[Rfam]
RNA sequence: GCAGGAAUGGCGGAAUUGGCAGACGCGCAGGCUUCAGGUGCCUGUGGUAGCAAUACCGUGUGGGUUCAAAUCCCAUUUCCUGCA
Numbered sequence: 001g002c003a004g005g006a007a008u009g010g011c012g013g014a015a016u017u018g019g020c021a022g023a024c025g026c027g028c029a030g031g032c033u034u035c036a037g038g039u040g041c042c043u044g045u046g047g048u049a050g051c052a053a054u055a056c057c058g059u060g061u062g063g064g065u066u067c068a069a070a071u072c073c074c075a076u077u078u079c080c081u082g083c084a
Base pairs, nucleotide, nucleotide: 001083002082003081004080005079006078007077010026011025012024028044029043030042031041032040060076061075062074063073064072
Shown here is an 84-nucleotide RNA from Lachnospiraceae bacterium C7, a member of the family "tRNA". Lineage of the source: Bacteria > Bacillati > Bacillota > Clostridia > Lachnospiraceae. The base pairs follow the family's consensus structure, which is taken from published work.